[Rfam]
The record is a 135-nucleotide RNA sequence from Phocoena sinus, which matches "Small nucleolar RNA SNORA1" in Rfam. The organism belongs to Phocoena, within Eukaryota. The base pairs follow the family's consensus structure, which was predicted with PFOLD. Gene Ontology terms of the family: RNA processing and nucleolus. From the family's description: ACA1 is a member of the H/ACA class of snoRNA that guide the sites of modification of uridines to pseudouridines.
Nucleotides: 135
Base pairs, nucleotide, nucleotide: 002061003060004059006057007056008055020044021043022042023041024040025039026038075127076126077125078124088114089113090112091111092110093109
Number, partner (000 for none) and nucleotide at each position: 001000a002061g003060c004059c005000u006057c007056a008055u009000a010000c011000a012000g013000u014000u015000g016000a017000a018000a019000a020044u021043g022042g023041g024040c025039a026038c027000u028000g029000u030000u031000g032000u033000u034000c035000a036000c037000g038026g039025u040024g041023c042022c043021c044020g045000u046000a047000a048000a049000u050000u051000g052000u053000u054000a055008a056007u057006g058000u059004g060003g061002c062000u063000a064000c065000a066000u067000u068000g069000a070000g071000a072000a073000c074000a075127c076126a077125g078124g079000u080000u081000u082000u083000g084000c085000u086000u087000c088114c089113a090112u091111c092110a093109c094000u095000g096000u097000a098000a099000u100000u101000u102000c103000a104000u105000u106000g107000c108000g109093g110092u111091g112090g113089u114088g115000a116000c117000a118000a119000u120000g121000a122000g123000a124078c125077c126076u127075g128000c129000a130000a131000c132000a133000u134000u135000u